[Rfam]
The family of this 180-nucleotide sequence from Geotrypetes seraphini is "Small Cajal body specific RNA 16". The family's consensus secondary structure was predicted with RNAfold. A reference for the family is Darzacq et al. (2002), "Cajal body-specific small nuclear RNAs: a novel class of 2'-O-methylation and pseudouridylation guide RNAs", EMBO J. Gene Ontology terms of the family: nucleolus and RNA processing.
RNA sequence: AUGGUCAGGGUAAUGGCUCCUGUGUGGCUGUGCCCAUUUACUGGGUGCAGCUGGGUACCUGGCAGCUCAGCCUUGACCUAGAUAAAUGAUUGGGCUCCUUGCUGCAGAGAAAGCCCUUGCAGUUGGAGGAGUGAGCAUUCAAGGAGCAGUUUGAUGGUCAUAUAUAUACUGCACAUACAA
Numbered sequence: 001a002u003g004g005u006c007a008g009g010g011u012a013a014u015g016g017c018u019c020c021u022g023u024g025u026g027g028c029u030g031u032g033c034c035c036a037u038u039u040a041c042u043g044g045g046u047g048c049a050g051c052u053g054g055g056u057a058c059c060u061g062g063c064a065g066c067u068c069a070g071c072c073u074u075g076a077c078c079u080a081g082a083u084a085a086a087u088g089a090u091u092g093g094g095c096u097c098c099u100u101g102c103u104g105c106a107g108a109g110a111a112a113g114c115c116c117u118u119g120c121a122g123u124u125g126g127a128g129g130a131g132u133g134a135g136c137a138u139u140c141a142a143g144g145a146g147c148a149g150u151u152u153g154a155u156g157g158u159c160a161u162a163u164a165u166a167u168a169c170u171g172c173a174c175a176u177a178c179a180a
Stems, first nucleotide, its partner, number of pairs: 003078004008073003015067004019062002022059001024058002026052005032046003090108002093103003118173006127165001132160003136156004142151002

It is annotated as a small Cajal body RNA. The match comes from Rfam's covariance-model search (104 bits). Rfam describes the family as follows. scaRNAs are a specific class of small nuclear RNAs which localise to the Cajal bodies and guide the modification of RNA polymerase II transcribed spliceosomal RNAs U1, U2, U4, U5 and U12. ACA47 belongs to the H/ACA box class of guide RNAs as it has the predicted hairpin-hinge-hairpin-tail structure, the conserved H/ACA-box motifs and is found associated with GAR1. ACA47 is predicted to guide the pseudouridylation of residue U5 of the U1 spliceosomal snRNA.